The record is a 79-nucleotide RNA from Crocodylus porosus, which matches "Mammalian CPEB3 ribozyme" in Rfam. A search with the family's covariance model found it, with a score of 56 bits. The base pairs follow the family's consensus structure, which is taken from published work. Gene Ontology term of the family: RNA nuclease activity.
RNA sequence: AGAAGUCACAAUGGAAAGCCACAGCAGAAGCACUCACGGUGUGGCCCUGUCAGAUUCCAAUGAAACUGUGAAUUCUGCU
Numbered sequence: 001a002g003a004a005g006u007c008a009c010a011a012u013g014g015a016a017a018g019c020c021a022c023a024g025c026a027g028a029a030g031c032a033c034u035c036a037c038g039g040u041g042u043g044g045c046c047c048u049g050u051c052a053g054a055u056u057c058c059a060a061u062g063a064a065a066c067u068g069u070g071a072a073u074u075c076u077g078c079u
Stems, first nucleotide, its partner, number of pairs: 013047002018045003023079007030042003051068003055064003
Dot-bracket structure: ............[[...[[[..((((((((((.......)))]]]]]...(((.(((....))).)))....)))))))